[Rfam]
RNA: tRNA
Organism: Talaromyces stipitatus
RNA sequence: GGGUGGCUGGCGCAAUGGUAGCGCGUUGGUUUUCGGCGUCAAUCAAUCUCAUGAUUGAUUGUACUGAUUCACCAAAGGUUGUGGAUUCGAGUCCCACGUCGCUCG
Numbered sequence: 001g002g003g004u005g006g007c008u009g010g011c012g013c014a015a016u017g018g019u020a021g022c023g024c025g026u027u028g029g030u031u032u033u034c035g036g037c038g039u040c041a042a043u044c045a046a047u048c049u050c051a052u053g054a055u056u057g058a059u060u061g062u063a064c065u066g067a068u069u070c071a072c073c074a075a076a077g078g079u080u081g082u083g084g085a086u087u088c089g090a091g092u093c094c095c096a097c098g099u100c101g102c103u104c105g
Base pairs, nucleotide, nucleotide: 001104002103003102004101005100006099007098010024011023012022013021026075027074028073029072030071081097082096083095084094